[Rfam]
RNA sequence: GGUUUCCAUUGGUGCAAAUCCAAUCACCUUCAUUUGAGAUGAGAAGCAAUUCCCCAUUGGUAGCAAAUGAUUUUCCAUUAAGCGGAAAAAUCAUAU
Numbered sequence: 001g002g003u004u005u006c007c008a009u010u011g012g013u014g015c016a017a018a019u020c021c022a023a024u025c026a027c028c029u030u031c032a033u034u035u036g037a038g039a040u041g042a043g044a045a046g047c048a049a050u051u052c053c054c055c056a057u058u059g060g061u062a063g064c065a066a067a068u069g070a071u072u073u074u075c076c077a078u079u080a081a082g083c084g085g086a087a088a089a090a091u092c093a094u095a096u
Stems, first nucleotide, its partner, number of pairs: 009023004054085002056078002059075002062072002

Annotation:
Shown here is a 96-nucleotide RNA sequence from Protea cynaroides, a member of the family "Plastid-rps12 3UTR RNA". The base pairs follow the family's consensus structure, which was predicted with LocARNA. Plastid rpl20 is a non-coding RNA (ncRNA) recognised in plastids. It was found in the three prime untranslated region (3UTR) of rps12 gene, its 3UTR location sugest a role in transcript maduration. For this family Rfam cites "Retrograde signaling in plants: A critical review focusing on the GUN pathway and beyond" (Richter et al., Plant Commun, 2023).